[Rfam]
Shown here is a 267-nucleotide RNA sequence from Molossus molossus, a member of the family "Mason-Pfizer monkey virus packaging signal". Rfam's curators write: This family represents a group of sequences that are related to the Mason-Pfizer monkey virus (MPMV) packaging signal. The packaging signal is located in the 5' UTR and is required for specific RNA encapsidation. The match comes from Rfam's covariance-model search (107 bits).
RNA sequence: UGGCGCCCAACGUGGGGCUCCAGCACGGGAGAUCCAGUGAAGGACGCCGUUCGAGUGGCGGGCAGAAAGGAAAAGAAAAGAGGGAACAACAUGGGAACCUGCUGCGUCUGCACCCCUCGGGUAAGUGAACGGCGUUUAUGGGUCAAGCAUUGAGCCAAGAUAAGAUGUUCAUUGAAGGACUAAAAAAGGCUAUAAAGGCACGAGGAGUAAAGGUAAAAAUUAAGCAUUUGUGUCAGUAUUUUGAUUAUAUUAAAGAAGUUUGUCCUU
Numbered sequence: 001u002g003g004c005g006c007c008c009a010a011c012g013u014g015g016g017g018c019u020c021c022a023g024c025a026c027g028g029g030a031g032a033u034c035c036a037g038u039g040a041a042g043g044a045c046g047c048c049g050u051u052c053g054a055g056u057g058g059c060g061g062g063c064a065g066a067a068a069g070g071a072a073a074a075g076a077a078a079a080g081a082g083g084g085a086a087c088a089a090c091a092u093g094g095g096a097a098c099c100u101g102c103u104g105c106g107u108c109u110g111c112a113c114c115c116c117u118c119g120g121g122u123a124a125g126u127g128a129a130c131g132g133c134g135u136u137u138a139u140g141g142g143u144c145a146a147g148c149a150u151u152g153a154g155c156c157a158a159g160a161u162a163a164g165a166u167g168u169u170c171a172u173u174g175a176a177g178g179a180c181u182a183a184a185a186a187a188g189g190c191u192a193u194a195a196a197g198g199c200a201c202g203a204g205g206a207g208u209a210a211a212g213g214u215a216a217a218a219a220u221u222a223a224g225c226a227u228u229u230g231u232g233u234c235a236g237u238a239u240u241u242u243g244a245u246u247a248u249a250u251u252a253a254a255g256a257a258g259u260u261u262g263u264c265c266u267u
Base pairs, nucleotide, nucleotide: 006031008029012026013025014024039047080118081117082116083114084113087110088109090106092104093103094102126145127144128143130142133140134139151194152193154190155189156188201243202242203241204240205239207237208236211229212228213227214226252267253266255264256263
On this family, see Mustafa et al., Virus Res 2004: "Mutational analysis of the predicted secondary RNA structure of the Mason-Pfizer monkey virus packaging signal". NCBI's taxonomy places the organism under Eukaryota, Gnathostomata, Teleostomi, Tetrapoda, Molossus.